Background: Shown here is a 104-nucleotide RNA sequence from Photobacterium aphoticum, a member of the family "c-di-GMP-I riboswitch aptamer". Taxonomically the source falls in Photobacterium (Bacteria, Gammaproteobacteria, Vibrionales, Vibrionaceae). Its family is annotated with cyclic-di-GMP binding in the Gene Ontology. The family has 155 seed sequences and 5,092 matches in Rfam 15.1. The family's consensus secondary structure is taken from published work.
[Rfam]
RNA sequence: UUGUGACAACGGCAAACUGCAUGAAAAUGCAGGACGCAAAGUUUCCGGUCUAAGGGUAAUGCAUUGUUAUUCAAUCCUUUACCUAUGACAGCGGGACUGCCUCA
Numbered sequence: 001u002u003g004u005g006a007c008a009a010c011g012g013c014a015a016a017c018u019g020c021a022u023g024a025a026a027a028u029g030c031a032g033g034a035c036g037c038a039a040a041g042u043u044u045c046c047g048g049u050c051u052a053a054g055g056g057u058a059a060u061g062c063a064u065u066g067u068u069a070u071u072c073a074a075u076c077c078u079u080u081a082c083c084u085a086u087g088a089c090a091g092c093g094g095g096a097c098u099g100c101c102u103c104a
Stems, first nucleotide, its partner, number of pairs: 012037002017032006040098004045094003048089003055083004